The family of this 96-nucleotide RNA from Okeania sp. KiyG1 is "TPP riboswitch aptamer (THI element)".
The literature on the family includes a 2002 paper in J Biol Chem by Rodionov et al., "Comparative genomics of thiamin biosynthesis in procaryotes. New genes and regulatory mechanisms".
Vitamin B(1) in its active form thiamin pyrophosphate (TPP) is an essential coenzyme that is synthesised by coupling of pyrimidine and thiazole moieties in bacteria.
A search with the family's covariance model found it, with a score of 69 bits.

[Rfam]
RNA sequence: AAAUUAAGCUAGGGGUGCCUAGAUAUUCAGGCUGAGAAAUACCCUUAGAACCUGAGACUGGUUAAUACCAGCGGAGGGAAGCUGUUUAUUUGAGGA
Numbered sequence: 001a002a003a004u005u006a007a008g009c010u011a012g013g014g015g016u017g018c019c020u021a022g023a024u025a026u027u028c029a030g031g032c033u034g035a036g037a038a039a040u041a042c043c044c045u046u047a048g049a050a051c052c053u054g055a056g057a058c059u060g061g062u063u064a065a066u067a068c069c070a071g072c073g074g075a076g077g078g079a080a081g082c083u084g085u086u087u088a089u090u091u092g093a094g095g096a
Stems, first nucleotide, its partner, number of pairs: 007083004011045004016039001017032004051077003058071004
Dot-bracket structure: ......((((((((.(((((........))))......)..)))).....(((....((((......))))...)))..)))).............